[Rfam]
The family of this 75-nucleotide RNA from Pantherophis guttatus is "U1A polyadenylation inhibition element (PIE)".
Its family is annotated with regulation of mRNA polyadenylation in the Gene Ontology.
The match comes from Rfam's covariance-model search (60 bits).
For this family Rfam cites "Global and Local Dynamics of the U1A Polyadenylation Inhibition Element (PIE) RNA and PIE RNA-U1A Complexes" (Clerte and Hall, Biochemistry, 2004).
The family's RNA type in Rfam is cis-regulatory element.
This family represents the U1A polyadenylation inhibition element (PIE). PIE is a regulatory RNA which is responsible for the regulation of the length of the polyA tail of the U1A pre-mRNA. The PIE is located in the U1A mRNA 3' UTR. PIE adopts a U-shaped structure, with binding sites for a single U1A protein at each bend and when complexed with the two proteins it blocks activity of poly(A) polymerase (PAP), and inhibits its activity.
The organism belongs to Pantherophis, within Eukaryota.
RNA sequence: GGCAAAAGCUUUGUACCCAGAGUCUGACGGCCAGACAUCGCACCUGGAGCUUUUCCUUUGGGCAAUAAAUGUGUU
Dot-bracket structure: ....(((((.......((((.(((((.....))))).......)))).)))))......................